Background: This 325-nucleotide RNA from Sulfurisoma sediminicola belongs to the Rfam family "Betaproteobacteria transfer-messenger RNA". Bacterial tmRNA, also known as 10Sa RNA or SsrA, is named for its dual tRNA and mRNA-like properties. Its role is to liberate the mRNA from a stalled ribosome. To accomplish this part of the tmRNA is used as a reading frame that ends in a translation stop signal. The broken mRNA is replaced in the ribosome by the tmRNA and translation of the tmRNA leads to addition of a proteolysis tag to the incomplete protein enabling recognition by a protease. Recently a number of permuted tmRNA genes have been found encoded in two parts. tmRNAs have been identified in eubacteria and some chloroplasts but are absent from archaeal and eukaryote nuclear genomes. For this family Rfam cites "Probing the structure of the Escherichia coli 10Sa RNA (tmRNA)" (Felden et al., RNA, 1997). The family's consensus secondary structure is taken from published work. It is annotated as a non-coding RNA gene. Its Rfam clan is "tRNA clan".
[Rfam]
RNA sequence: CGUCACAUUGGCCUUGAAACAAGGCGCCUUCGGCCCCAUAAUUGCCGUACGGUUGUAAUUCCGGCAAUCUGGAGGCGUUCUGGACGCGGGUUCGAUUCCCGCCACCUCCACCUAAGGGUUUCGCAGAGUUCUUAGGUGGGGGUGCACUGGUUUCGACAGGGCGGACAAAGGUGCGCAGGCAACCCGUCAGGCGAUCGACGUUAAUGAAGCAAAUUCUCAAACGCCAACGAUGAGCGUUUUGCACUGGCCGCUUAAGGCCUAUGCCGAGGCUGCUUGAGCCUUGUUACCAAAGAAAAGCCGGUGGGGACUUCGGUCCCCAUCGUCA
Dot-bracket structure: ..................................................(((((.....((.((.((((.....(((((((...(((((.......)))))(((((((............................)))))))............))))))).....))))..)).)))))))((((........))))..................................................................((((.[[[[..)))).............]]]]..((((((((....)))))))).....
Numbered sequence: 001c002g003u004c005a006c007a008u009u010g011g012c013c014u015u016g017a018a019a020c021a022a023g024g025c026g027c028c029u030u031c032g033g034c035c036c037c038a039u040a041a042u043u044g045c046c047g048u049a050c051g052g053u054u055g056u057a058a059u060u061c062c063g064g065c066a067a068u069c070u071g072g073a074g075g076c077g078u079u080c081u082g083g084a085c086g087c088g089g090g091u092u093c094g095a096u097u098c099c100c101g102c103c104a105c106c107u108c109c110a111c112c113u114a115a116g117g118g119u120u121u122c123g124c125a126g127a128g129u130u131c132u133u134a135g136g137u138g139g140g141g142g143u144g145c146a147c148u149g150g151u152u153u154c155g156a157c158a159g160g161g162c163g164g165a166c167a168a169a170g171g172u173g174c175g176c177a178g179g180c181a182a183c184c185c186g187u188c189a190g191g192c193g194a195u196c197g198a199c200g201u202u203a204a205u206g207a208a209g210c211a212a213a214u215u216c217u218c219a220a221a222c223g224c225c226a227a228c229g230a231u232g233a234g235c236g237u238u239u240u241g242c243a244c245u246g247g248c249c250g251c252u253u254a255a256g257g258c259c260u261a262u263g264c265c266g267a268g269g270c271u272g273c274u275u276g277a278g279c280c281u282u283g284u285u286a287c288c289a290a291a292g293a294a295a296a297g298c299c300g301g302u303g304g305g306g307a308c309u310u311c312g313g314u315c316c317c318c319a320u321c322g323u324c325a
Stems, first nucleotide, its partner, number of pairs: 051184005061179002064176002067172004076163007086102005103144007185200004267281004272298004301320008